[Rfam]
RNA sequence: AAGGAACGUUAAAAACCAUUGUGUAUAUGUUUAAAUCCUUAAAUGUUAAAACAACAAUGGUGUUUUUCGUUUCUAUA
Numbered sequence: 001a002a003g004g005a006a007c008g009u010u011a012a013a014a015a016c017c018a019u020u021g022u023g024u025a026u027a028u029g030u031u032u033a034a035a036u037c038c039u040u041a042a043a044u045g046u047u048a049a050a051a052c053a054a055c056a057a058u059g060g061u062g063u064u065u066u067u068c069g070u071u072u073c074u075a076u077a
Stems, first nucleotide, its partner, number of pairs: 002074007011065003015061007022053003027046008
Rfam assigns this 77-nucleotide RNA sequence from Acyrthosiphon pisum to the family "mir-3051 microRNA precursor family". The base pairs follow the family's consensus structure, which was predicted with RNAalifold. NCBI's taxonomy places the organism under Eukaryota, Pancrustacea, Paraneoptera, Macrosiphini, Acyrthosiphon.